[Rfam]
RNA sequence: UAUGUCCGCUGGGGGUGCUUUUAGCUGAGAUGGCAGAUGCCAAACCCCUAGAACCUGAUUAGGUUAAUACCUACGAAGGGAAUGCGGCAAAAGACCGCA
Numbered sequence: 001u002a003u004g005u006c007c008g009c010u011g012g013g014g015g016u017g018c019u020u021u022u023a024g025c026u027g028a029g030a031u032g033g034c035a036g037a038u039g040c041c042a043a044a045c046c047c048c049u050a051g052a053a054c055c056u057g058a059u060u061a062g063g064u065u066a067a068u069a070c071c072u073a074c075g076a077a078g079g080g081a082a083u084g085c086g087g088c089a090a091a092a093g094a095c096c097g098c099a
Stems, first nucleotide, its partner, number of pairs: 006087004011048004016042001017025003032041003054079003060073004
Overview:
Rfam assigns this 99-nucleotide RNA sequence from Thermoanaerobacterium thermosaccharolyticum to the family "TPP riboswitch aptamer (THI element)". Lineage of the source: Bacteria > Bacillati > Thermoanaerobacterales > Thermoanaerobacterium > Thermoanaerobacterium thermosaccharolyticum. Rfam links the family to the GO term thiamine pyrophosphate binding. The base pairs follow the family's consensus structure, which is taken from published work. The match comes from Rfam's covariance-model search (77 bits).